[Rfam]
Background
The record is an 80-nucleotide sequence from Loxodonta africana, which matches "Small nucleolar RNA SNORD72" in Rfam. snoRNA HBII-240 belongs to the CD family of snoRNAs. It is one of the family's seed sequences. Gene Ontology terms of the family: nucleolus and RNA processing. It is annotated as a C/D-box small nucleolar RNA. Lineage of the source: Eukaryota > Eumetazoa > Teleostomi > Theria > Loxodonta.

RNA sequence: AGCUUAUCAGUGAUGUCAUAAAAAUAAAUGUCUGAACAUAUGAAUACAAUACUGAUUUCAGCAUUUGCCUGAGAUAAGCU
Numbered sequence: 001a002g003c004u005u006a007u008c009a010g011u012g013a014u015g016u017c018a019u020a021a022a023a024a025u026a027a028a029u030g031u032c033u034g035a036a037c038a039u040a041u042g043a044a045u046a047c048a049a050u051a052c053u054g055a056u057u058u059c060a061g062c063a064u065u066u067g068c069c070u071g072a073g074a075u076a077a078g079c080u
Base pairs, nucleotide, nucleotide: 002079003078004077005076006075007074008073